RNA: 5' ureB small RNA
RNA sequence: CCUCGUUCGCCUGCUGCGGGCAGAUGUAAUGGAUGUGGGUGUCGACGCCGCCGGCGGUGACGAUCUUGCCCUCGGCGGCGACGACGUCGGUGCAGCUGCCGACAAUCAUGUUGGGGCUGACGCCGUCCAUGACGUCGGGACUGCCGGCCUUGCCGAUGCCGACAAUGAGGCCGUCCUUGACGCCAAUGUCGGCCUUGUAGAUGCCGGUCCAGUCGACGAUGAGGGCGUUGGUGAGCACCACGUCCAGGACGUCGGCGUCGCUGCGCCCCGUGGCCUGGCCCAUUCCCUCCCUCAGG
Numbered sequence: 001c002c003u004c005g006u007u008c009g010c011c012u013g014c015u016g017c018g019g020g021c022a023g024a025u026g027u028a029a030u031g032g033a034u035g036u037g038g039g040u041g042u043c044g045a046c047g048c049c050g051c052c053g054g055c056g057g058u059g060a061c062g063a064u065c066u067u068g069c070c071c072u073c074g075g076c077g078g079c080g081a082c083g084a085c086g087u088c089g090g091u092g093c094a095g096c097u098g099c100c101g102a103c104a105a106u107c108a109u110g111u112u113g114g115g116g117c118u119g120a121c122g123c124c125g126u127c128c129a130u131g132a133c134g135u136c137g138g139g140a141c142u143g144c145c146g147g148c149c150u151u152g153c154c155g156a157u158g159c160c161g162a163c164a165a166u167g168a169g170g171c172c173g174u175c176c177u178u179g180a181c182g183c184c185a186a187u188g189u190c191g192g193c194c195u196u197g198u199a200g201a202u203g204c205c206g207g208u209c210c211a212g213u214c215g216a217c218g219a220u221g222a223g224g225g226c227g228u229u230g231g232u233g234a235g236c237a238c239c240a241c242g243u244c245c246a247g248g249a250c251g252u253c254g255g256c257g258u259c260g261c262u263g264c265g266c267c268c269c270g271u272g273g274c275c276u277g278g279c280c281c282a283u284u285c286c287c288u289c290c291c292u293c294a295g296g
Stems, first nucleotide, its partner, number of pairs: 001296003005292001009288001012164002015161002018076001022072002030053003034050002037048001039046002057069003077154002081150001083148001085146001092144004099139002101136003107131002110126002113123001170279004177273003182268001184265001192226005207214001229263003234258001236254001240252003